[Rfam]
RNA sequence: AGUGAAGGUAGAGGUGCGAAAUUCAAUAGUAAUGAUUCGGAGAAGGAUGAGCUUCAAGGAAGAAUCAUGAAAGGGAAGGUUCGCCGAAGUGAAAAAGGACUCAUAACCUUUUUUUGCUGGUUCUGUAUUGAAAAAAUCCAGAAUUGUCAAGACGAUGUCUUGGAGAGCUAUCUUAACG
Numbered sequence: 001a002g003u004g005a006a007g008g009u010a011g012a013g014g015u016g017c018g019a020a021a022u023u024c025a026a027u028a029g030u031a032a033u034g035a036u037u038c039g040g041a042g043a044a045g046g047a048u049g050a051g052c053u054u055c056a057a058g059g060a061a062g063a064a065u066c067a068u069g070a071a072a073g074g075g076a077a078g079g080u081u082c083g084c085c086g087a088a089g090u091g092a093a094a095a096a097g098g099a100c101u102c103a104u105a106a107c108c109u110u111u112u113u114u115u116g117c118u119g120g121u122u123c124u125g126u127a128u129u130g131a132a133a134a135a136a137u138c139c140a141g142a143a144u145u146g147u148c149a150a151g152a153c154g155a156u157g158u159c160u161u162g163g164a165g166a167g168c169u170a171u172c173u174u175a176a177c178g
Stems, first nucleotide, its partner, number of pairs: 006173006016084005022077003032068007088118011119145007127137003147163007